[Rfam]
RNA sequence: GAAACCUUAUCUUAGAUCGUUCGCAAUCCAGGCGUCGAUCAGUACUUUUUAGUACGAGCGUCCGCUCGGAUGAGGAGAGAGU
Numbered sequence: 001g002a003a004a005c006c007u008u009a010u011c012u013u014a015g016a017u018c019g020u021u022c023g024c025a026a027u028c029c030a031g032g033c034g035u036c037g038a039u040c041a042g043u044a045c046u047u048u049u050u051a052g053u054a055c056g057a058g059c060g061u062c063c064g065c066u067c068g069g070a071u072g073a074g075g076a077g078a079g080a081g082u
Stems, first nucleotide, its partner, number of pairs: 005075008016039003022034003042055005056067004